[Rfam]
RNA sequence: AGCUCGACCGGGUCGACGGCGCGUGUGACGACCAGAUAGUCGCGCAUCACGAUCCCGUGACGGUUCUC
Numbered sequence: 001a002g003c004u005c006g007a008c009c010g011g012g013u014c015g016a017c018g019g020c021g022c023g024u025g026u027g028a029c030g031a032c033c034a035g036a037u038a039g040u041c042g043c044g045c046a047u048c049a050c051g052a053u054c055c056c057g058u059g060a061c062g063g064u065u066c067u068c
Stems, first nucleotide, its partner, number of pairs: 004063003008059001012029002016026003035056001038053001040052003044048001

The record is a 68-nucleotide RNA from Rhodococcoides fascians, which matches "ASdes TB sRNA" in Rfam.
It is annotated as a small RNA.
The family's consensus secondary structure is taken from published work.
The literature on the family includes a 2009 paper in Mol Microbiol by Arnvig and Young, "Identification of small RNAs in Mycobacterium tuberculosis".
A search with the family's covariance model found it, with a score of 80 bits.
Taxonomically the source falls in Rhodococcoides (Bacteria, Bacillati, Mycobacteriales, Nocardiaceae).